[Rfam]
RNA sequence: ACGGUCGACGCGGGAGAGCCCGCCGGGGAAACCCGAGCAGGCACCGAAGGAGCAAUCCUCCCCGACAAUCUCUCAGGUACCCCUACCGCGUCGAGCUG
Numbered sequence: 001a002c003g004g005u006c007g008a009c010g011c012g013g014g015a016g017a018g019c020c021c022g023c024c025g026g027g028g029a030a031a032c033c034c035g036a037g038c039a040g041g042c043a044c045c046g047a048a049g050g051a052g053c054a055a056u057c058c059u060c061c062c063c064g065a066c067a068a069u070c071u072c073u074c075a076g077g078u079a080c081c082c083c084u085a086c087c088g089c090g091u092c093g094a095g096c097u098g
Stems, first nucleotide, its partner, number of pairs: 006093008020041002022038001043078003046074002050072003056065002
Description
A member of the RNA family "Glycine riboswitch aptamer" from Planctomonas sp. JC2975, 98 nucleotides long. Pairs were carried over by alignment from the consensus structure. It scores 61 bits against the family's covariance model.